[Rfam]
RNA: RNase MRP
Organism: Owenia fusiformis
RNA sequence: GAGAGUCAUGUACACUUGCUUCGAAGCUACAUGAGAGUAUUGUUUACUGUUGAUGCUUUGGGGAAAGUCCUCGGAUCUAGACCAGAAAGUGGUGGGGUCGAGAGACCUUCAGCUAUGUCAGAAUUGAUUGUAUAGGCCAGAGACAUUGUAGAAUGGAGGCCUCAAUUAGACCUGGUGAUUAUCGCAGCAAAGUCAUGCAAGUGGUGUGGCAUGCUACACUAACUCGACGGGGCUUAUUCACAUGAAUCU
Numbered sequence: 001g002a003g004a005g006u007c008a009u010g011u012a013c014a015c016u017u018g019c020u021u022c023g024a025a026g027c028u029a030c031a032u033g034a035g036a037g038u039a040u041u042g043u044u045u046a047c048u049g050u051u052g053a054u055g056c057u058u059u060g061g062g063g064a065a066a067g068u069c070c071u072c073g074g075a076u077c078u079a080g081a082c083c084a085g086a087a088a089g090u091g092g093u094g095g096g097g098u099c100g101a102g103a104g105a106c107c108u109u110c111a112g113c114u115a116u117g118u119c120a121g122a123a124u125u126g127a128u129u130g131u132a133u134a135g136g137c138c139a140g141a142g143a144c145a146u147u148g149u150a151g152a153a154u155g156g157a158g159g160c161c162u163c164a165a166u167u168a169g170a171c172c173u174g175g176u177g178a179u180u181a182u183c184g185c186a187g188c189a190a191a192g193u194c195a196u197g198c199a200a201g202u203g204g205u206g207u208g209g210c211a212u213g214c215u216a217c218a219c220u221a222a223c224u225c226g227a228c229g230g231g232g233c234u235u236a237u238u239c240a241c242a243u244g245a246a247u248c249u
Base pairs, nucleotide, nucleotide: 002249003248004247006245007244008243009242010241011240014202015201016200017199018198019197021061022060023059024058025057026056027055065235066234067233069232070231071230072229081093082092083091084090094109095108096107097106098105099104111176113174117171118170119169121167123166124165125164126163135161136160137159138158145154146153147152204219205218206217207216208215209214